[Rfam]
This 70-nucleotide sequence from Oryctes borbonicus belongs to the Rfam family "mir-10 microRNA precursor family". For this family Rfam cites "microRNAs: tiny regulators with great potential" (Ambros, Cell, 2001). The organism belongs to Oryctes, within Eukaryota. The family's consensus secondary structure was predicted with PFOLD. The match comes from Rfam's covariance-model search (49 bits).
RNA sequence: UAAUAAUAACCCGUAGAUCCGAACUUGUGUAGUAUUUAAUCACAAGUUCGUAUGAAGCGGGACUUAUUGU
Numbered sequence: 001u002a003a004u005a006a007u008a009a010c011c012c013g014u015a016g017a018u019c020c021g022a023a024c025u026u027g028u029g030u031a032g033u034a035u036u037u038a039a040u041c042a043c044a045a046g047u048u049c050g051u052a053u054g055a056a057g058c059g060g061g062a063c064u065u066a067u068u069g070u
Stems, first nucleotide, its partner, number of pairs: 002068005010060002017053002020050010